[Rfam]
RNA sequence: UGACGGGGGCCCGCACAAGCGGUGGAGCAUGUGGUUUAAUUCGAUGCAACGCGAAGAACCUUACCUACUCUUGACAUCCAGAGAAUUCGCUAGAGAUAGCUUAGUGCCUUCGGGAACUCUGAGACAGGUGCUGCAUGGCUGUCGUCAGCUCGUGUUGUGAAAUGUUGGGUUAAGUCCCGCAACGAGCGCAACCCUUAUCCUUAUUUGCCAGCACGUAAUGGUGGGAACUUUAGGGAGACUGCCGGUGAUAAACCGGAGGAAGGUGGGGACGACGUCAAGUCAUCAUGGCCCUUACGAGUAGGGCUACACACGUGCUACAAUGGUCGGUACAGAGGGUUGCGAAGCCGCGAGGUGGAGCUAAUCUCACAAAGCCGGUCGUAGUCCGGAUCGGAGUCUGCAACUCGACUCCGUGAAGUCGGAAUCGCUAGUAAUCGUAGAUCAGAAUGCUACGGUGAAUACGUUCCCGGGCCUUGUACACACCGCCCGUCACACCAUGGGAGUGGGCUGCACCAGAAGUAGAUAGCUUAACCUUCGGGAGGGCGUUUACCACGGUGUGGUUCAUGACUGGGGUGAAGUCGUAACAAGG
Number, nucleotide and partner (000 for none) at each position: 001u477002g476003a474004c473005g472006g000007g471008g470009g469010c468011c467012c466013g465014c000015a461016c460017a000018a000019g425020c424021g423022g422023u421024g318025g000026a316027g315028c314029a313030u312031g311032u310033g309034g307035u306036u000037u000038a000039a000040u055041u054042c053043g052044a000045u000046g000047c000048a000049a000050c000051g000052c043053g042054a041055a040056g000057a000058a000059c000060c000061u000062u000063a000064c302065c301066u300067a299068c298069u297070c296071u000072u000073g000074a000075c000076a000077u124078c123079c121080a120081g119082a118083g117084a000085a000086u103087u000088c000089g100090c099091u098092a097093g000094a000095g000096a000097u092098a091099g090100c089101u000102u000103a086104g000105u116106g000107c114108c113109u000110u000111c000112g000113g108114g107115a000116a105117c083118u082119c081120u080121g079122a000123g078124a077125c000126a000127g291128g290129u000130g289131c288132u287133g286134c000135a000136u285137g284138g280139c279140u278141g276142u000143c274144g273145u000146c000147a000148g187149c186150u185151c184152g183153u182154g163155u162156u161157g000158u000159g000160a000161a156162a155163u154164g000165u000166u179167g178168g177169g176170u000171u000172a000173a000174g000175u000176c169177c168178c167179g166180c000181a000182a153183c152184g151185a150186g149187c148188g000189c000190a000191a000192c000193c268194c267195u266196u265197a000198u236199c235200c234201u233202u232203a231204u000205u000206u000207g000208c225209c224210a000211g000212c223213a222214c221215g000216u000217a000218a000219u000220g000221g214222u213223g212224g209225g208226a000227a000228c000229u000230u000231u203232a202233g201234g200235g199236a198237g000238a000239c259240u258241g000242c256243c255244g254245g253246u252247g000248a000249u000250a000251a000252a246253c245254c244255g243256g242257a000258g240259g239260a000261a000262g000263g000264u000265g196266g195267g194268g193269a000270c000271g000272a000273c144274g143275u000276c141277a000278a140279g139280u138281c000282a000283u000284c137285a136286u133287g132288g131289c130290c128291c127292u000293u000294a000295c000296g070297a069298g068299u067300a066301g065302g064303g000304c000305u000306a035307c034308a000309c033310a032311c031312g030313u029314g028315c027316u026317a000318c024319a000320a000321u000322g377323g376324u375325c374326g373327g372328u371329a000330c000331a000332g000333a000334g365335g364336g363337u000338u000339g358340c357341g000342a000343a000344g353345c352346c351347g000348c000349g000350a000351g346352g345353u344354g000355g000356a000357g340358c339359u000360a000361a000362u000363c336364u335365c334366a000367c000368a000369a000370a000371g328372c327373c326374g325375g324376u323377c322378g000379u000380a000381g000382u000383c000384c415385g000386g000387a000388u000389c410390g409391g408392a407393g406394u405395c404396u000397g000398c000399a000400a000401c000402u000403c000404g395405a394406c393407u392408c391409c390410g389411u000412g000413a000414a000415g384416u000417c000418g000419g000420a000421a023422u022423c021424g020425c019426u000427a000428g000429u000430a000431a453432u452433c451434g450435u449436a448437g447438a000439u000440c000441a000442g000443a000444a000445u000446g000447c437448u436449a435450c434451g433452g432453u431454g000455a000456a000457u000458a000459c000460g016461u015462u000463c000464c000465c013466g012467g011468g010469c009470c008471u007472u005473g004474u003475a000476c002477a001478c000479a000480c585481c000482g582483c000484c000485c578486g577487u000488c000489a000490c572491a571492c570493c569494a000495u567496g566497g565498g000499a000500g562501u561502g560503g559504g558505c557506u556507g555508c554509a553510c552511c551512a000513g000514a000515a000516g547517u546518a545519g544520a543521u542522a000523g541524c540525u539526u538527a000528a000529c536530c535531u000532u000533c000534g000535g530536g529537a000538g526539g525540g524541c523542g521543u520544u519545u518546a517547c516548c000549a000550c000551g511552g510553u509554g508555u507556g506557g505558u504559u503560c502561a501562u500563g000564a000565c497566u496567g495568g000569g493570g492571u491572g490573a000574a000575g000576u000577c486578g485579u000580a000581a000582c482583a000584a000585g480586g000
RNA: Bacterial small subunit ribosomal RNA, nucleotides 921 to 1506
Organism: Shewanella pealeana